[Rfam]
RNA sequence: GGUAGUAGCAAAUAUUCAAAUGAGAACUUUGAAGACUGAAGUGGAGAAGGGUUCCAUGUGAACAGCAAUUGGACAUGGGUUAGUCGAUCCUAAGAGAUGGGGUAAUCCUGUAUCAAGGGUGCGAUUUGCACCGCCCAUCGAAAGGGAAAAGGGUUAAGAUUCCCUUACCUGGACAAGGCGGCUGACGGUAACGUAAGCGAGCCCAGAGACGCCGGCGUUGGCCCUGGGAAGAGUUCUCUUUUCUUUUUAACAGCUCGAAGGCCCUGGAAUCGAAUCAUUCGGAGAUAGGGCUCAGAAGCUGGUAAAGCACCGCACUUUUCGCGGUGUCCGGCGCGCCAACGACGGUCCUUGAAAAUCUGGGGGAGCAUUUCCGAUCUUGCCAGGUCGUACCCAUAACCGCAUCAGGUCUCCAAGGUGAACAGCCUCUAGUCGA
Numbered sequence: 001g002g003u004a005g006u007a008g009c010a011a012a013u014a015u016u017c018a019a020a021u022g023a024g025a026a027c028u029u030u031g032a033a034g035a036c037u038g039a040a041g042u043g044g045a046g047a048a049g050g051g052u053u054c055c056a057u058g059u060g061a062a063c064a065g066c067a068a069u070u071g072g073a074c075a076u077g078g079g080u081u082a083g084u085c086g087a088u089c090c091u092a093a094g095a096g097a098u099g100g101g102g103u104a105a106u107c108c109u110g111u112a113u114c115a116a117g118g119g120u121g122c123g124a125u126u127u128g129c130a131c132c133g134c135c136c137a138u139c140g141a142a143a144g145g146g147a148a149a150a151g152g153g154u155u156a157a158g159a160u161u162c163c164c165u166u167a168c169c170u171g172g173a174c175a176a177g178g179c180g181g182c183u184g185a186c187g188g189u190a191a192c193g194u195a196a197g198c199g200a201g202c203c204c205a206g207a208g209a210c211g212c213c214g215g216c217g218u219u220g221g222c223c224c225u226g227g228g229a230a231g232a233g234u235u236c237u238c239u240u241u242u243c244u245u246u247u248u249a250a251c252a253g254c255u256c257g258a259a260g261g262c263c264c265u266g267g268a269a270u271c272g273a274a275u276c277a278u279u280c281g282g283a284g285a286u287a288g289g290g291c292u293c294a295g296a297a298g299c300u301g302g303u304a305a306a307g308c309a310c311c312g313c314a315c316u317u318u319u320c321g322c323g324g325u326g327u328c329c330g331g332c333g334c335g336c337c338a339a340c341g342a343c344g345g346u347c348c349u350u351g352a353a354a355a356u357c358u359g360g361g362g363g364a365g366c367a368u369u370u371c372c373g374a375u376c377u378u379g380c381c382a383g384g385u386c387g388u389a390c391c392c393a394u395a396a397c398c399g400c401a402u403c404a405g406g407u408c409u410c411c412a413a414g415g416u417g418a419a420c421a422g423c424c425u426c427u428a429g430u431c432g433a
Base pairs, nucleotide, nucleotide: 015033016032017031018030019029020028034431035430036429037428043411044410045409046408049391050390054078055077056076057075058074059073063071064070085387086386087385089145090144094139095138097111098110100109101108102107119131120130121129149166150165151164152163153162169383170382171381172380174379175378176377177376178375179373180372185194186193187192202361203360204359205358206357207356211346212345213344214343216341217340218339219338220337221336222335224331225330226329227247228246229245230244231243232242251301252300253299254298255297261291262290263289264288265287266286270282271281272280273279308326309325310324311323312322313321397406398405413425414424415423416422
A member of the RNA family "Eukaryotic large subunit ribosomal RNA" from Chlorella variabilis, 433 nucleotides of a longer RNA. NCBI's taxonomy places the organism under Eukaryota, Viridiplantae, core chlorophytes, Trebouxiophyceae, Chlorella. The base pairs follow the family's consensus structure, which is taken from published work.